This 102-nucleotide sequence from Rhynchospora breviuscula belongs to the Rfam family "Small nucleolar RNA R44/J54/Z268 family". By type it is a C/D-box small nucleolar RNA. The family's consensus secondary structure was predicted with PFOLD.
RNA sequence: AUAGCAAGUGAUGAGAAAAAAUGACAAAAUCAGUACUUCCUUUAGAAUUUUUCAAAGAGGAGGAGUGAUGAUCUAGUCGAAUGGGAAUCUCUCUGAUGCUUU
Numbered sequence: 001a002u003a004g005c006a007a008g009u010g011a012u013g014a015g016a017a018a019a020a021a022u023g024a025c026a027a028a029a030u031c032a033g034u035a036c037u038u039c040c041u042u043u044a045g046a047a048u049u050u051u052u053c054a055a056a057g058a059g060g061a062g063g064a065g066u067g068a069u070g071a072u073c074u075a076g077u078c079g080a081a082u083g084g085g086a087a088u089c090u091c092u093c094u095g096a097u098g099c100u101u102u
Stems, first nucleotide, its partner, number of pairs: 003100004